[Rfam]
RNA sequence: CGUACGAAAAGGCAAACCUGUUGAAAAAUAGGGACGCAAAGCCACGGGCCUAAAGCAAAAAGUGCAAUGGCGGCUGGGUUACCGAA
Number, nucleotide and partner (000 for none) at each position: 001c000002g000003u000004a000005c000006g000007a000008a000009a000010a000011g000012g037013c036014a000015a000016a000017c032018c031019u030020g029021u028022u027023g000024a000025a000026a000027a022028a021029u020030a019031g018032g017033g000034a000035c000036g013037c012038a000039a000040a080041g079042c078043c077044a000045c076046g075047g074048g071049c070050c069051u000052a000053a000054a000055g065056c064057a063058a000059a000060a000061a000062g000063u057064g056065c055066a000067a000068u000069g050070g049071c048072g000073g000074c047075u046076g045077g043078g042079u041080u040081a000082c000083c000084g000085a000086a000
About this RNA
c-di-GMP-I riboswitch aptamer: an 86-nucleotide sequence from Halalkalibacter wakoensis. Rfam links the family to the GO term cyclic-di-GMP binding. The family's consensus secondary structure is taken from published work.